Rfam assigns this 84-nucleotide sequence from Natronincola peptidivorans to the family "Clostridiales-2 RNA". The organism belongs to Natronincola, within Bacteria. Rfam 15.1 lists 285 matches to the family in 26 species.
RNA sequence: AUAGAAAAAGGGGUUGUAGGGGAUGAAAUCCCCUGCCCGCAUCUAGGAAGGUGCUCAGGCUGCAGGGCAGCCGUCGAAGGAAAC
Numbered sequence: 001a002u003a004g005a006a007a008a009a010g011g012g013g014u015u016g017u018a019g020g021g022g023a024u025g026a027a028a029u030c031c032c033c034u035g036c037c038c039g040c041a042u043c044u045a046g047g048a049a050g051g052u053g054c055u056c057a058g059g060c061u062g063c064a065g066g067g068c069a070g071c072c073g074u075c076g077a078a079g080g081a082a083a084c
Stems, first nucleotide, its partner, number of pairs: 016036008058072005
By type it is a small RNA.